[Rfam]
RNA: Small nucleolar RNA SNORD94
RNA sequence: UCUGUGAUGAUGAGAAGCGCAGGGGUACGGACCUCAGCCAAUGAUGGUGGCUGAGUGCUGCUGCAGGCCUUCUGAUUGGAGGACGAGUGGUCCACUGCCAGAAGGACAGCAGCACGAGACAGACGCUGGCCUGAACAGA
Numbered sequence: 001u002c003u004g005u006g007a008u009g010a011u012g013a014g015a016a017g018c019g020c021a022g023g024g025g026u027a028c029g030g031a032c033c034u035c036a037g038c039c040a041a042u043g044a045u046g047g048u049g050g051c052u053g054a055g056u057g058c059u060g061c062u063g064c065a066g067g068c069c070u071u072c073u074g075a076u077u078g079g080a081g082g083a084c085g086a087g088u089g090g091u092c093c094a095c096u097g098c099c100a101g102a103a104g105g106a107c108a109g110c111a112g113c114a115c116g117a118g119a120c121a122g123a124c125g126c127u128g129g130c131c132u133g134a135a136c137a138g139a
Stems, first nucleotide, its partner, number of pairs: 001139005